[Rfam]
RNA sequence: UGUAAGUGUAUUAAUUAGCCGAAUUUAAUACCCGAAAUAUGGUCGGGUAGUCUCUACCGAUACACCGUAAAUGUAUCGACAAUCGUGGUGAAAACUCUCAAGA
Numbered sequence: 001u002g003u004a005a006g007u008g009u010a011u012u013a014a015u016u017a018g019c020c021g022a023a024u025u026u027a028a029u030a031c032c033c034g035a036a037a038u039a040u041g042g043u044c045g046g047g048u049a050g051u052c053u054c055u056a057c058c059g060a061u062a063c064a065c066c067g068u069a070a071a072u073g074u075a076u077c078g079a080c081a082a083u084c085g086u087g088g089u090g091a092a093a094a095c096u097c098u099c100a101a102g103a
Base pairs, nucleotide, nucleotide: 018089019088020087021086023083024082025081029049030048031047032046033045034044035043058078059077060076061075062074063073064072